Overview:
Shown here is a 77-nucleotide sequence from Chelonia mydas, a member of the family "mir-29 microRNA precursor family". The match comes from Rfam's covariance-model search (47 bits). Pairs were carried over by alignment from the consensus structure, which was predicted with PFOLD. NCBI's taxonomy places the organism under Eukaryota, Opisthokonta, Archelosauria, Durocryptodira, Chelonia. Rfam links the family to the GO terms RISC complex and gene silencing by miRNA. This family represents the microRNA (miRNA) precursors mir-29.
[Rfam]
RNA sequence: AUUGGACCAACUUCUGUUGGUGAAAGAGACAAGCUUUUGAAAAGCUUGCCUCUUGCACCAACAGAAGUUGGUCCAAC
Numbered sequence: 001a002u003u004g005g006a007c008c009a010a011c012u013u014c015u016g017u018u019g020g021u022g023a024a025a026g027a028g029a030c031a032a033g034c035u036u037u038u039g040a041a042a043a044g045c046u047u048g049c050c051u052c053u054u055g056c057a058c059c060a061a062c063a064g065a066a067g068u069u070g071g072u073c074c075a076a077c
Base pairs, nucleotide, nucleotide: 002076003075004074005072007071008070009069010068011067012066013065014064015063017061018060019059020058021057022056026054027053028052029051